[Rfam]
RNA sequence: GUUUACCCAACAUGUAAGUCGCUUUGGAUAAAGGCGUCUGCUAAAUGACUAAAU
Numbered sequence: 001g002u003u004u005a006c007c008c009a010a011c012a013u014g015u016a017a018g019u020c021g022c023u024u025u026g027g028a029u030a031a032a033g034g035c036g037u038c039u040g041c042u043a044a045a046u047g048a049c050u051a052a053a054u
Stems, first nucleotide, its partner, number of pairs: 013043001014041003020036006